[Rfam]
RNA: TD-2 RNA
Organism: Treponema vincentii
RNA sequence: AGCGCCACGGAUGGCGGUGGUUCCAAACAGCAGCGAUAUUUCGGCUGUGCCGAAAUUCGCCGUCAACCGAUGUACACGGAAGUUCAUCGGUUGACAGCC
Numbered sequence: 001a002g003c004g005c006c007a008c009g010g011a012u013g014g015c016g017g018u019g020g021u022u023c024c025a026a027a028c029a030g031c032a033g034c035g036a037u038a039u040u041u042c043g044g045c046u047g048u049g050c051c052g053a054a055a056u057u058c059g060c061c062g063u064c065a066a067c068c069g070a071u072g073u074a075c076a077c078g079g080a081a082g083u084u085c086a087u088c089g090g091u092u093g094a095c096a097g098c099c
Stems, first nucleotide, its partner, number of pairs: 001018001003016004034059003038056008062095011074083002